[Rfam]
RNA: Group I catalytic intron
Organism: Oceanobacillus picturae
RNA sequence: ACAACUUCUUCAAUAAGUUGAUGGGACGGGCGUCUAAUCUGGUAACGGAUUAGAUGAUAACUGGGUGAAUUGCUGGAACUUCCUAAAGUGCUUUGUACCACAACGUAGCUGGAAACGGCAGACGUGAAGGUUUGAAAAACAAAGCAAUCAUACAAUGGAUAAUCAGCAUCCAAGCGCCUGUGGCGAAAGCCUGGCGAAGGUUCAACGACUAGAAUGUACUACCUAACGAGAAAUCUAUGGCAAUGAGAUUCGUAGGAUAAUGAAUAAUUAUUCGAAGCGCCCAGCCCCUUUGGAUGUACAAAGGGUGAAGAUAUAGUCUGUUCUAUGUUCGAAAGACAUAG
Number, nucleotide and partner (000 for none) at each position: 001a000002c000003a000004a000005c030006u029007u028008c000009u026010u025011c024012a000013a022014u000015a000016a000017g000018u000019u000020g000021a000022u013023g000024g011025g010026a009027c000028g007029g006030g005031c000032g000033u049034c048035u047036a000037a000038u000039c000040u000041g000042g000043u000044a000045a000046c000047g035048g034049a033050u000051u000052a000053g000054a000055u000056g000057a000058u000059a000060a000061c284062u283063g282064g281065g000066u279067g278068a000069a000070u000071u168072g167073c166074u165075g164076g163077a000078a000079c000080u000081u159082c158083c157084u000085a000086a000087a000088g000089u000090g000091c000092u000093u000094u000095g000096u000097a000098c000099c000100a000101c000102a000103a000104c000105g000106u000107a000108g000109c000110u000111g000112g000113a000114a000115a000116c000117g000118g000119c000120a000121g000122a000123c000124g000125u000126g000127a000128a000129g000130g000131u000132u000133u000134g000135a000136a000137a000138a000139a000140c000141a000142a000143a000144g000145c000146a000147a000148u000149c000150a000151u000152a000153c000154a000155a000156u000157g083158g082159a081160u000161a000162a000163u076164c075165a074166g073167c072168a071169u000170c200171c000172a000173a000174g000175c000176g000177c000178c000179u000180g000181u000182g000183g000184c000185g000186a000187a000188a000189g000190c000191c000192u000193g000194g000195c000196g000197a000198a000199g000200g170201u000202u000203c000204a000205a319206c000207g318208a317209c316210u315211a314212g000213a000214a000215u000216g000217u000218a000219c000220u000221a000222c000223c000224u000225a000226a000227c000228g000229a000230g000231a000232a000233a000234u000235c000236u000237a000238u000239g000240g000241c000242a000243a000244u000245g000246a000247g000248a000249u000250u000251c000252g000253u000254a000255g000256g000257a000258u000259a000260a000261u000262g000263a000264a000265u000266a000267a000268u000269u000270a000271u000272u000273c000274g000275a000276a000277g000278c067279g066280c000281c064282c063283a062284g061285c000286c000287c305288c304289u303290u302291u301292g000293g299294a000295u000296g000297u000298a000299c293300a000301a291302a290303g289304g288305g287306u000307g000308a000309a000310g000311a000312u000313a000314u211315a210316g209317u208318c207319u205320g000321u000322u000323c000324u000325a339326u338327g337328u336329u000330c335331g000332a000333a000334a000335g330336a328337c327338a326339u325340a000341g000